Record summary:
A member of the RNA family "Mammalian CPEB3 ribozyme" from Laticauda laticaudata, 72 nucleotides long.

RNA sequence: CAUGCUGGAAAAGUGGAAGGAGCGUUCACGUCGCGGCCCCUGUCAGGUAUCUGUUUACCUGCAAAUCCUUCU
Numbered sequence: 001c002a003u004g005c006u007g008g009a010a011a012a013g014u015g016g017a018a019g020g021a022g023c024g025u026u027c028a029c030g031u032c033g034c035g036g037c038c039c040c041u042g043u044c045a046g047g048u049a050u051c052u053g054u055u056u057a058c059c060u061g062c063a064a065a066u067c068c069u070u071c072u
Stems, first nucleotide, its partner, number of pairs: 007040002015072007022034003044061006
Pairs were carried over by alignment from the consensus structure, which is taken from published work.